[Rfam]
RNA sequence: AUAGGUCGCUGAAUUAGAGAUCGGAACCUGUUUUUUUUAUCUAUACUGUUUUGGAGUAUUGCAAUGUCUCUAAGCGUUGAAGCUAAAGCAAAAAUCGUCGCAGAAUUCGGUCGUGGCACU
Numbered sequence: 001a002u003a004g005g006u007c008g009c010u011g012a013a014u015u016a017g018a019g020a021u022c023g024g025a026a027c028c029u030g031u032u033u034u035u036u037u038u039a040u041c042u043a044u045a046c047u048g049u050u051u052u053g054g055a056g057u058a059u060u061g062c063a064a065u066g067u068c069u070c071u072a073a074g075c076g077u078u079g080a081a082g083c084u085a086a087a088g089c090a091a092a093a094a095u096c097g098u099c100g101c102a103g104a105a106u107u108c109g110g111u112c113g114u115g116g117c118a119c120u
Base pairs, nucleotide, nucleotide: 009024010023011022012021050074051073052072053071054070055069056068
Rfam assigns this 120-nucleotide RNA sequence from Candidatus Symbiopectobacterium sp. PLON1 to the family "Ribosomal S15 leader". Clan: Ribosomal Protein S15 Leader clan. NCBI's taxonomy places the organism under Bacteria, Pseudomonadati, Gammaproteobacteria, Enterobacterales, Symbiopectobacterium. By type it is a cis-regulatory leader. It scores 92 bits against the family's covariance model. The E. coli Ribosomal S15 gene 5' UTR can form two alternative structures. One that is a series of three hairpins, The other includes a pseudoknot. This structure causes translational regulation of the S15 protein. Rfam links the family to the GO term regulation of translation, ncRNA-mediated. The family's consensus secondary structure is taken from published work. For this family Rfam cites "Pseudoknot and translational control in the expression of the S15 ribosomal protein" (Benard et al., Biochimie, 1996).